[Rfam]
RNA sequence: AAGCAACACUCUGUGGCAGAUAAUUAGCUGUCUGCUUCAAUUUAAGCUUGCUAUAGUAAGCAUAGUCUGACCUAUUCCAGUGGCCUCUGUAGGUGAGGCCAUCUGUUAUAUAGACUCUUAACAUC
Numbered sequence: 001a002a003g004c005a006a007c008a009c010u011c012u013g014u015g016g017c018a019g020a021u022a023a024u025u026a027g028c029u030g031u032c033u034g035c036u037u038c039a040a041u042u043u044a045a046g047c048u049u050g051c052u053a054u055a056g057u058a059a060g061c062a063u064a065g066u067c068u069g070a071c072c073u074a075u076u077c078c079a080g081u082g083g084c085c086u087c088u089g090u091a092g093g094u095g096a097g098g099c100c101a102u103c104u105g106u107u108a109u110a111u112a113g114a115c116u117c118u119u120a121a122c123a124u125c
Stems, first nucleotide, its partner, number of pairs: 009046002012039002015036001017034006062118001064116006073110003078105003084098004